[Rfam]
Record summary: Shown here is an 80-nucleotide sequence from Vanessa tameamea, a member of the family "mir-2763 microRNA precursor family". The match comes from Rfam's covariance-model search (72 bits). The base pairs follow the family's consensus structure, which was predicted with RNAalifold. The family has 3 seed sequences and 59 matches in Rfam 15.1. Gene Ontology terms of the family: RISC complex and miRNA-mediated post-transcriptional gene silencing.

RNA sequence: GGCUACAUUCCCCAAAGUAGUGAACGUAAUUUAUCGUGAGAUUAGCCUGAUAUUAUGCUCAUUACUUUGGAUAUGUUGAA
Numbered sequence: 001g002g003c004u005a006c007a008u009u010c011c012c013c014a015a016a017g018u019a020g021u022g023a024a025c026g027u028a029a030u031u032u033a034u035c036g037u038g039a040g041a042u043u044a045g046c047c048u049g050a051u052a053u054u055a056u057g058c059u060c061a062u063u064a065c066u067u068u069g070g071a072u073a074u075g076u077u078g079a080a
Stems, first nucleotide, its partner, number of pairs: 003078001005076002008073001012070012025057005032052004038047001